[Rfam]
RNA sequence: GGAUGUUAUGAUGAUAGGCAAAAUGUUCAACUGCUCUGAAUUAAGCUGACUGAUAAUAGCCUUUCUGAACAUCC
Numbered sequence: 001g002g003a004u005g006u007u008a009u010g011a012u013g014a015u016a017g018g019c020a021a022a023a024u025g026u027u028c029a030a031c032u033g034c035u036c037u038g039a040a041u042u043a044a045g046c047u048g049a050c051u052g053a054u055a056a057u058a059g060c061c062u063u064u065c066u067g068a069a070c071a072u073c074c
Stems, first nucleotide, its partner, number of pairs: 002073005
Shown here is a 74-nucleotide RNA from Castor canadensis, a member of the family "Small nucleolar RNA Z40". NCBI's taxonomy places the organism under Eukaryota, Metazoa, Tetrapoda, Euarchontoglires, Castor. Pairs were carried over by alignment from the consensus structure, which was predicted with PFOLD. Its family is annotated with RNA processing and nucleolus in the Gene Ontology.